[Rfam]
RNA sequence: AAAAUUAUUAAAGUUAAAAAACUUAUAGUUAAACCUUGGGCUCGGCCUAUUAGUCCGUUUUACUAUAUGUAUUAAUUGGGUUAGGCCUUUUUUCUUAGAGAAUUAUAUACCCUUUAUUGGGUGUGUUAGGGAAUUAGGACUUUUAUUAUAAAUAAAUUAGAUUGCUUAAAGAAGGCCUAUAUUCGAAUAUACUAGUAUAGAAUAAUAAAAUAGAAUAUAUAGUUCUAUUUUAUUAGUUUCUAGGAUUAUUAUAAUAAUUAAUAGGGAUAGUCGGAGGUAUUAAUAUUUAAUUAUUAGAAGUAAAAUUCUUAAAUUUAUUGAAGAUUAAUUAUUACGAAAAUAUUUACUAAGGAUGUUUUUAUUAAUUAGGAACGAAAGUUAGGGGAUUAAAGACAAUUAAAUAUUAUUAUAAUUUUAAUUAUAAAUUAUACCGAUUAGGGAUUGGACAGUAUUAUUUUUUGACCCGUUUGGUACUUUACAAUAAAUUAAAAUAUUUGGGCUCUUGGGGGAGUAUAGUUGUAAGGUUAAAAUUUAAAGAAAU
Numbered sequence: 001a002a003a004a005u006u007a008u009u010a011a012a013g014u015u016a017a018a019a020a021a022c023u024u025a026u027a028g029u030u031a032a033a034c035c036u037u038g039g040g041c042u043c044g045g046c047c048u049a050u051u052a053g054u055c056c057g058u059u060u061u062a063c064u065a066u067a068u069g070u071a072u073u074a075a076u077u078g079g080g081u082u083a084g085g086c087c088u089u090u091u092u093u094c095u096u097a098g099a100g101a102a103u104u105a106u107a108u109a110c111c112c113u114u115u116a117u118u119g120g121g122u123g124u125g126u127u128a129g130g131g132a133a134u135u136a137g138g139a140c141u142u143u144u145a146u147u148a149u150a151a152a153u154a155a156a157u158u159a160g161a162u163u164g165c166u167u168a169a170a171g172a173a174g175g176c177c178u179a180u181a182u183u184c185g186a187a188u189a190u191a192c193u194a195g196u197a198u199a200g201a202a203u204a205a206u207a208a209a210a211u212a213g214a215a216u217a218u219a220u221a222g223u224u225c226u227a228u229u230u231u232a233u234u235a236g237u238u239u240c241u242a243g244g245a246u247u248a249u250u251a252u253a254a255u256a257a258u259u260a261a262u263a264g265g266g267a268u269a270g271u272c273g274g275a276g277g278u279a280u281u282a283a284u285a286u287u288u289a290a291u292u293a294u295u296a297g298a299a300g301u302a303a304a305a306u307u308c309u310u311a312a313a314u315u316u317a318u319u320g321a322a323g324a325u326u327a328a329u330u331a332u333u334a335c336g337a338a339a340a341u342a343u344u345u346a347c348u349a350a351g352g353a354u355g356u357u358u359u360u361a362u363u364a365a366u367u368a369g370g371a372a373c374g375a376a377a378g379u380u381a382g383g384g385g386a387u388u389a390a391a392g393a394c395a396a397u398u399a400a401a402u403a404u405u406a407u408u409a410u411a412a413u414u415u416u417a418a419u420u421a422u423a424a425a426u427u428a429u430a431c432c433g434a435u436u437a438g439g440g441a442u443u444g445g446a447c448a449g450u451a452u453u454a455u456u457u458u459u460u461g462a463c464c465c466g467u468u469u470g471g472u473a474c475u476u477u478a479c480a481a482u483a484a485a486u487u488a489a490a491a492u493a494u495u496u497g498g499g500c501u502c503u504u505g506g507g508g509g510a511g512u513a514u515a516g517u518u519g520u521a522a523g524g525u526u527a528a529a530a531u532u533u534a535a536a537g538a539a540a541u
Stems, first nucleotide, its partner, number of pairs: 011504003019501001023371002028366003264360004268355002271352002276348004282326002286322006293315001297308003334341001378419006388412001392408002395405001431499002434492002437476003442471006449464001452462002480487002506533003515526004

Shown here is a 541-nucleotide part of an RNA from Neurospora crassa, a member of the family "Eukaryotic small subunit ribosomal RNA". The family has 90 seed sequences and 75,755 matches in Rfam 15.1. The family's consensus secondary structure is taken from published work. Rfam's curators put it in the seed alignment. Its Rfam clan is "SSU clan".